[Rfam]
RNA sequence: UGCAAUGAUGGUGUAAUUUGCGACUUACUCUGUGACCAGUGACGGUAUGCCUGCUGUCAUAUGCUGGCACAGUUGGCUGACGAACAUUGAGUCUGAGCA
Numbered sequence: 001u002g003c004a005a006u007g008a009u010g011g012u013g014u015a016a017u018u019u020g021c022g023a024c025u026u027a028c029u030c031u032g033u034g035a036c037c038a039g040u041g042a043c044g045g046u047a048u049g050c051c052u053g054c055u056g057u058c059a060u061a062u063g064c065u066g067g068c069a070c071a072g073u074u075g076g077c078u079g080a081c082g083a084a085c086a087u088u089g090a091g092u093c094u095g096a097g098c099a
Stems, first nucleotide, its partner, number of pairs: 001099003021082002024079001030072005039064002041058005